[Rfam]
The record is a 105-nucleotide RNA sequence from Marinomonas sp. S3726, which matches "TPP riboswitch aptamer (THI element)" in Rfam.
RNA sequence: UCCCACUUGUCGGAGUGCCAUUUGGCUGAGAUCGUGUUUAUGCACGGGAUCCGCAGAACCUGAACAGGGCUAAAUACCUGCGUAGGGAACAAGAAAAUCUUCAUU
Numbered sequence: 001u002c003c004c005a006c007u008u009g010u011c012g013g014a015g016u017g018c019c020a021u022u023u024g025g026c027u028g029a030g031a032u033c034g035u036g037u038u039u040a041u042g043c044a045c046g047g048g049a050u051c052c053g054c055a056g057a058a059c060c061u062g063a064a065c066a067g068g069g070c071u072a073a074a075u076a077c078c079u080g081c082g083u084a085g086g087g088a089a090c091a092a093g094a095a096a097a098u099c100u101u102c103a104u105u
Stems, first nucleotide, its partner, number of pairs: 006093005011053004016047001017026003033046005059086004065080004